A member of the RNA family "tRNA" from Polypterus senegalus, 69 nucleotides long. About the family: Transfer RNA (tRNA) molecules are approximately 80 nucleotides in length. NCBI's taxonomy places the organism under Eukaryota, Metazoa, Deuterostomia, Polypteriformes, Polypterus. Pairs were carried over by alignment from the consensus structure, which is taken from published work.
RNA sequence: GUUAAUAUAGUCUAAACAAGACAUUAGAUUGUAAUUCUAAUAAUAGAAGUUAAACACUUCUUAUUGACA
Numbered sequence: 001g002u003u004a005a006u007a008u009a010g011u012c013u014a015a016a017c018a019a020g021a022c023a024u025u026a027g028a029u030u031g032u033a034a035u036u037c038u039a040a041u042a043a044u045a046g047a048a049g050u051u052a053a054a055c056a057c058u059u060c061u062u063a064u065u066g067a068c069a
Stems, first nucleotide, its partner, number of pairs: 001068007010022004024040005045061005